[Rfam]
RNA sequence: CAGCGUGCUGUGAUAAUCAGGGUCCAGUAAUAAAAAACCCCGUAAAUCGGGGUUUUUUAUUAUCUGAAACAUGACCAUUCAGGUAUUUACUGGGCUUUAGGCCCUUUUUUU
Numbered sequence: 001c002a003g004c005g006u007g008c009u010g011u012g013a014u015a016a017u018c019a020g021g022g023u024c025c026a027g028u029a030a031u032a033a034a035a036a037a038c039c040c041c042g043u044a045a046a047u048c049g050g051g052g053u054u055u056u057u058u059a060u061u062a063u064c065u066g067a068a069a070c071a072u073g074a075c076c077a078u079u080c081a082g083g084u085a086u087u088u089a090c091u092g093g094g095c096u097u098u099a100g101g102c103c104c105u106u107u108u109u110u111u
Stems, first nucleotide, its partner, number of pairs: 034056009092104004
A member of the RNA family "Gammaprotebacteria rimP leader" from Photobacterium lipolyticum, 111 nucleotides long. The literature on the family includes a 2010 paper in Genome Biol by Naville and Gautheret, "Premature terminator analysis sheds light on a hidden world of bacterial transcriptional attenuation". The source organism's lineage runs through Bacteria, Pseudomonadati, Gammaproteobacteria, Vibrionales and Photobacterium. By type it is a cis-regulatory leader.